A member of the RNA family "SAM (S-adenosyl methionine) riboswitch aptamer" from Cellulomonas cellasea, 110 nucleotides long. Clan: SAM clan. NCBI's taxonomy places the organism under Bacteria, Bacillati, Micrococcales, Cellulomonadaceae, Cellulomonas cellasea. Rfam's curators write: SAM-IV is a mRNA element that regulates gene expression via direct sensing of S-adenosylmethionine (SAM or AdoMet). SAM-IV riboswitches share conserved nucleotide positions with the previously described SAM-I riboswitches sequence analysis and molecular recognition experiments suggest that SAM-I and SAM-IV riboswitches share similar ligand binding sites, but have different scaffolds.
[Rfam]
RNA sequence: GGUCACGAGAUCCGGUUCACGAGCCCUGGCUUGCCGGACAGCAACCCUCCGUGCGGCGGGGUGCUCCAGGUGACGACCCGGCGCCGGUCCCUCCGGCGCAAGCACGGUCC
Numbered sequence: 001g002g003u004c005a006c007g008a009g010a011u012c013c014g015g016u017u018c019a020c021g022a023g024c025c026c027u028g029g030c031u032u033g034c035c036g037g038a039c040a041g042c043a044a045c046c047c048u049c050c051g052u053g054c055g056g057c058g059g060g061g062u063g064c065u066c067c068a069g070g071u072g073a074c075g076a077c078c079c080g081g082c083g084c085c086g087g088u089c090c091c092u093c094c095g096g097c098g099c100a101a102g103c104a105c106g107g108u109c110c
Stems, first nucleotide, its partner, number of pairs: 001078004009039001011038006022031002040065003045061003049056002081099007